Rfam assigns this 74-nucleotide RNA from Alligator sinensis to the family "Mammalian CPEB3 ribozyme". The match comes from Rfam's covariance-model search (38 bits). The base pairs follow the family's consensus structure, which is taken from published work.
[Rfam]
RNA sequence: UGCGAGUUCAAGGUCAUAGUGGAAGCACUAACAGUGUGUUCUUGUCAGAUUCCAAUAAAUCUGUGAAUUCUGCU
Number, nucleotide and partner (000 for none) at each position: 001u000002g000003c000004g000005a000006g000007u000008u000009c000010a042011a000012g041013g040014u000015c038016a000017u000018a074019g073020u072021g071022g070023a069024a068025g037026c036027a035028c000029u000030a000031a000032c000033a000034g000035u027036g026037u025038g015039u000040u013041c012042u010043u000044g000045u000046c063047a062048g061049a060050u059051u058052c000053c000054a000055a000056u000057a000058a051059a050060u049061c048062u047063g046064u000065g000066a000067a000068u024069u023070c022071u021072g020073c019074u018